[Rfam]
Rfam assigns this 50-nucleotide RNA from Sphingopyxis sp. QXT-31 to the family "chrB-b RNA". Taxonomically the source falls in Sphingopyxis (Bacteria, Alphaproteobacteria, Sphingomonadales, Sphingopyxidaceae).

RNA sequence: CCGGGGCGAAGCAACCUCCCGGACAAGCGCAGCGGGCGCUCAAGCGUUGC
Numbered sequence: 001c002c003g004g005g006g007c008g009a010a011g012c013a014a015c016c017u018c019c020c021g022g023a024c025a026a027g028c029g030c031a032g033c034g035g036g037c038g039c040u041c042a043a044g045c046g047u048u049g050c
Base pairs, nucleotide, nucleotide: 001022002021003020004019005018006017011050012049013048014047015046026040027039028038029037030036
Dot-bracket structure: ((((((....[[[[[.))))))...(((((.....))))).....]]]]]

It is annotated as a cis-regulatory element. The base pairs follow the family's consensus structure, which is taken from published work. It scores 42 bits against the family's covariance model.